RNA sequence: AAAGUCCCCGACGGGUAAGGGUUAGCCAUCCACCCGUAUCGAGUCUUGGGCCUGUGGCGGAGUAAUGGAGGACGAACAAGGCAGGUUAAGCGUAGACAGAGAAUCCUGUAGGCCGCAGGGGUGAUCGCGCACCCUUGAAGUGCUGGUACAGCUUCGACAAGCUCAGCUCCGGGCGCUGAGGGUUUUAACGUGCACCGAAGGCAACACAGAAGCACCCGUCAGGGCGAGGGUGUGGAGGUCCGGCGGAGUCCACAGGCCU
Numbered sequence: 001a002a003a004g005u006c007c008c009c010g011a012c013g014g015g016u017a018a019g020g021g022u023u024a025g026c027c028a029u030c031c032a033c034c035c036g037u038a039u040c041g042a043g044u045c046u047u048g049g050g051c052c053u054g055u056g057g058c059g060g061a062g063u064a065a066u067g068g069a070g071g072a073c074g075a076a077c078a079a080g081g082c083a084g085g086u087u088a089a090g091c092g093u094a095g096a097c098a099g100a101g102a103a104u105c106c107u108g109u110a111g112g113c114c115g116c117a118g119g120g121g122u123g124a125u126c127g128c129g130c131a132c133c134c135u136u137g138a139a140g141u142g143c144u145g146g147u148a149c150a151g152c153u154u155c156g157a158c159a160a161g162c163u164c165a166g167c168u169c170c171g172g173g174c175g176c177u178g179a180g181g182g183u184u185u186u187a188a189c190g191u192g193c194a195c196c197g198a199a200g201g202c203a204a205c206a207c208a209g210a211a212g213c214a215c216c217c218g219u220c221a222g223g224g225c226g227a228g229g230g231u232g233u234g235g236a237g238g239u240c241c242g243g244c245g246g247a248g249u250c251c252a253c254a255g256g257c258c259u
Base pairs, nucleotide, nucleotide: 011037012036013035014034015033019031020030021029022028023227025225026224039100040099043097044096045095046094047092048091049087050086051085052084053083054082055081059077151249152248153247154246155245156244169243170242171241172240173239174238175202176201177200180196181195207237212233213232214231215230216229217228
This 259-nucleotide RNA from Thioalkalivibrio paradoxus belongs to the Rfam family "Group II catalytic intron D1-D4-6". Pairs were carried over by alignment from the consensus structure. Group II introns are found in rRNA, tRNA and mRNA of organelles in fungi, plants and protists, and also in mRNA in bacteria.